[Rfam]
RNA sequence: GGUGUCGGCUGAAUCAGAGAUUGGCGGCACAAAUUAAAACAUCUUUGUAUUAGGAAUGAGUUAUGUCUCUGAAUGCAGAAACUAAAGCAGCAAUCGUUGCAGAAUACGCACAAUGUGAA
Numbered sequence: 001g002g003u004g005u006c007g008g009c010u011g012a013a014u015c016a017g018a019g020a021u022u023g024g025c026g027g028c029a030c031a032a033a034u035u036a037a038a039a040c041a042u043c044u045u046u047g048u049a050u051u052a053g054g055a056a057u058g059a060g061u062u063a064u065g066u067c068u069c070u071g072a073a074u075g076c077a078g079a080a081a082c083u084a085a086a087g088c089a090g091c092a093a094u095c096g097u098u099g100c101a102g103a104a105u106a107c108g109c110a111c112a113a114u115g116u117g118a119a
Stems, first nucleotide, its partner, number of pairs: 008025005050073002053070003
Shown here is a 119-nucleotide RNA sequence from Photobacterium angustum, a member of the family "Ribosomal S15 leader". Rfam classes the family as a cis-regulatory leader. About the family: The E. coli Ribosomal S15 gene 5' UTR can form two alternative structures. One that is a series of three hairpins, The other includes a pseudoknot. This structure causes translational regulation of the S15 protein. The alignment of this family contains only the final two hairpins which are conserved in other species, and also includes the complete region that forms the alternate structures. The sequence is in the family's curated seed alignment. The literature on the family includes a 1996 paper in Biochimie by Benard et al., "Pseudoknot and translational control in the expression of the S15 ribosomal protein".